[Rfam]
RNA sequence: CCGCCCCUCAUUGGGGAGUAGCCGCCCCGCGAACCGUCCGCACCGCGUUUUUGCCGGUGCGUUGCAGCGGUGCUACGCGGGGGCGCCUGUCAACAGACUUGGCCGUCACGGCCAUGGCAGACGCAGCCUCUGGCCUGGCGAGACCGAUGAUCCACACGCGCCGCAACAGGGCCCGGCGUGUCGUGGGUCGUCGCUCGUUCACAUCUGGCCCGAGGAU
Numbered sequence: 001c002c003g004c005c006c007c008u009c010a011u012u013g014g015g016g017a018g019u020a021g022c023c024g025c026c027c028c029g030c031g032a033a034c035c036g037u038c039c040g041c042a043c044c045g046c047g048u049u050u051u052u053g054c055c056g057g058u059g060c061g062u063u064g065c066a067g068c069g070g071u072g073c074u075a076c077g078c079g080g081g082g083g084c085g086c087c088u089g090u091c092a093a094c095a096g097a098c099u100u101g102g103c104c105g106u107c108a109c110g111g112c113c114a115u116g117g118c119a120g121a122c123g124c125a126g127c128c129u130c131u132g133g134c135c136u137g138g139c140g141a142g143a144c145c146g147a148u149g150a151u152c153c154a155c156a157c158g159c160g161c162c163g164c165a166a167c168a169g170g171g172c173c174c175g176g177c178g179u180g181u182c183g184u185g186g187g188u189c190g191u192c193g194c195u196c197g198u199u200c201a202c203a204u205c206u207g208g209c210c211c212g213a214g215g216a217u
Stems, first nucleotide, its partner, number of pairs: 026081006083124003087120006100114005125217001127215004
RNA: Manganese Mn2+ riboswitch aptamer (yybP-ykoY)